[Rfam]
This 27-nucleotide RNA from Furovirus tritici belongs to the Rfam family "Pseudoknot of upstream pseudoknot domain (UPD) of the 3'UTR". The organism belongs to Furovirus tritici, within Viruses. Rfam classes the family as a cis-regulatory element. The family's consensus secondary structure is taken from published work. A reference for the family is Koenig et al. (1999), "Molecular characterization of a new furovirus mainly infecting rye", Arch Virol. Its family is annotated with regulation of viral transcription and positive regulation of viral translation in the Gene Ontology.
RNA sequence: AGAGUUAUCAUACUCUAUAAACUAUGA
Numbered sequence: 001a002g003a004g005u006u007a008u009c010a011u012a013c014u015c016u017a018u019a020a021a022c023u024a025u026g027a
Stems, first nucleotide, its partner, number of pairs: 001016004008027005